Shown here is an 84-nucleotide RNA from Aythya fuligula, a member of the family "Small nucleolar RNA snR60/Z15/Z230/Z193/J17". Clan: SNORD77 clan. By type it is a C/D-box small nucleolar RNA. Taxonomically the source falls in Aythya (Eukaryota, Sauropsida, Archosauria, Anseriformes).
RNA sequence: AGGCUGCGUAUGAUGAUAGCAUAGUUCAGCAGAUGAUCAGUGGUGAUCACUUGUUCAGUCUUUCGCUCCUAUCUGAUGCAGCCU
Dot-bracket structure: ...(((((....................................................................)))))...
Numbered sequence: 001a002g003g004c005u006g007c008g009u010a011u012g013a014u015g016a017u018a019g020c021a022u023a024g025u026u027c028a029g030c031a032g033a034u035g036a037u038c039a040g041u042g043g044u045g046a047u048c049a050c051u052u053g054u055u056c057a058g059u060c061u062u063u064c065g066c067u068c069c070u071a072u073c074u075g076a077u078g079c080a081g082c083c084u
Stems, first nucleotide, its partner, number of pairs: 004081005